[Rfam]
RNA: Prion pseudoknot
RNA sequence: UCAGGGUGGUGGCUGGGGGCAGCCUCAUGGUGGCGGAGGCUGG
Numbered sequence: 001u002c003a004g005g006g007u008g009g010u011g012g013c014u015g016g017g018g019g020c021a022g023c024c025u026c027a028u029g030g031u032g033g034c035g036g037a038g039g040c041u042g043g
Stems, first nucleotide, its partner, number of pairs: 001030003005026002